[Rfam]
RNA sequence: UAGAACUGAUAAUCCAAGGAGUGGAAUGAGAGGGUAACGCCUUGAAACGCUCCCCUUGAUACUCCGGCUGGCGGUGUAAGUGGAAACGCUGAUCGUCAGAAGCCCGGUAAAGUCGGCUGAAAGUGACCGUAUUGCGGCUGUAUGAACAACGCAACGAAAUCUGUCCAGAGGUGGAUGGUGUCACCUACAGGCCGGAGGUCUACAAA
Numbered sequence: 001u002a003g004a005a006c007u008g009a010u011a012a013u014c015c016a017a018g019g020a021g022u023g024g025a026a027u028g029a030g031a032g033g034g035u036a037a038c039g040c041c042u043u044g045a046a047a048c049g050c051u052c053c054c055c056u057u058g059a060u061a062c063u064c065c066g067g068c069u070g071g072c073g074g075u076g077u078a079a080g081u082g083g084a085a086a087c088g089c090u091g092a093u094c095g096u097c098a099g100a101a102g103c104c105c106g107g108u109a110a111a112g113u114c115g116g117c118u119g120a121a122a123g124u125g126a127c128c129g130u131a132u133u134g135c136g137g138c139u140g141u142a143u144g145a146a147c148a149a150c151g152c153a154a155c156g157a158a159a160u161c162u163g164u165c166c167a168g169a170g171g172u173g174g175a176u177g178g179u180g181u182c183a184c185c186u187a188c189a190g191g192c193c194g195g196a197g198g199u200c201u202a203c204a205a206a
Stems, first nucleotide, its partner, number of pairs: 018053006031043004054198004064107004068099008080087002114194005123184005128156003134152002161178007
Shown here is a 206-nucleotide RNA sequence from Anaeromassilibacillus sp. An200, a member of the family "Group II catalytic intron D1-D4-5". A reference for the family is Bonen and Vogel (2001), "The ins and outs of group II introns", Trends Genet. The match comes from Rfam's covariance-model search (176 bits). The pairing is the family consensus, mapped onto this sequence. Group II introns are found in rRNA, tRNA and mRNA of organelles in fungi, plants and protists, and also in mRNA in bacteria. The family has 139 seed sequences and 720 matches in Rfam 15.1. NCBI's taxonomy places the organism under Bacteria, Bacillati, Eubacteriales, Acutalibacteraceae, Anaeromassilibacillus.